[Rfam]
RNA: Small nucleolar RNA SNORD116
Organism: Phocoena sinus
RNA sequence: GGAUCGAUGAUGAUACCCCUGUAUGCAUUCCUUGGAAAAUCUGAACAAAAUGAGAGAGAACACUCUCCCGUCUCCUCAUCGAGUCUGAGGUCC
Numbered sequence: 001g002g003a004u005c006g007a008u009g010a011u012g013a014u015a016c017c018c019c020u021g022u023a024u025g026c027a028u029u030c031c032u033u034g035g036a037a038a039a040u041c042u043g044a045a046c047a048a049a050a051u052g053a054g055a056g057a058g059a060a061c062a063c064u065c066u067c068c069c070g071u072c073u074c075c076u077c078a079u080c081g082a083g084u085c086u087g088a089g090g091u092c093c
Stems, first nucleotide, its partner, number of pairs: 001093005026056001028054003032048003